[Rfam]
RNA sequence: AGUAAGGAUAGAGGUGCAAUGACAUCAGUACGCAUACGGAGGAGAAUGAGCUCUGAAGAUCGAUGCGGAAAGGGGAAAUUGCCGAAGCUUCUCGAAUCUCAUCUUCCUGAAGCUGGUUCUGAUACUGAAGAAGUGCAGGACUGUCAUAUAGGAGACUAUAUGGAGGGCUAUCUUACGC
Numbered sequence: 001a002g003u004a005a006g007g008a009u010a011g012a013g014g015u016g017c018a019a020u021g022a023c024a025u026c027a028g029u030a031c032g033c034a035u036a037c038g039g040a041g042g043a044g045a046a047u048g049a050g051c052u053c054u055g056a057a058g059a060u061c062g063a064u065g066c067g068g069a070a071a072g073g074g075g076a077a078a079u080u081g082c083c084g085a086a087g088c089u090u091c092u093c094g095a096a097u098c099u100c101a102u103c104u105u106c107c108u109g110a111a112g113c114u115g116g117u118u119c120u121g122a123u124a125c126u127g128a129a130g131a132a133g134u135g136c137a138g139g140a141c142u143g144u145c146a147u148a149u150a151g152g153a154g155a156c157u158a159u160a161u162g163g164a165g166g167g168c169u170a171u172c173u174u175a176c177g178c
Stems, first nucleotide, its partner, number of pairs: 006173006016082005023074001031067005038060001086114006094106003115142007123135004144163007

This 178-nucleotide RNA from Halobacillus sp. BAB-2008 belongs to the Rfam family "Lysine riboswitch aptamer".
The base pairs follow the family's consensus structure, which is taken from published work.
A search with the family's covariance model found it, with a score of 106 bits.